[Rfam]
RNA sequence: AGGGGGUUGAGAAGGUAAAACAGCUGACACUGUGCUGCUUUCACUGGUUACAUCCCCCAAUAUGAAUACAGUGCCGCUGGAAUGAGUGCUUCAUUAACUACUGAUGGAGCCAUUCUGCUUUGGCAUACACAAU
Numbered sequence: 001a002g003g004g005g006g007u008u009g010a011g012a013a014g015g016u017a018a019a020a021c022a023g024c025u026g027a028c029a030c031u032g033u034g035c036u037g038c039u040u041u042c043a044c045u046g047g048u049u050a051c052a053u054c055c056c057c058c059a060a061u062a063u064g065a066a067u068a069c070a071g072u073g074c075c076g077c078u079g080g081a082a083u084g085a086g087u088g089c090u091u092c093a094u095u096a097a098c099u100a101c102u103g104a105u106g107g108a109g110c111c112a113u114u115c116u117g118c119u120u121u122g123g124c125a126u127a128c129a130c131a132a133u
Stems, first nucleotide, its partner, number of pairs: 002058005014045003018040002021037004078125002084120001086118003095112001098109002101107002
RNA: Small nucleolar RNA SNORA47
Organism: Acipenser ruthenus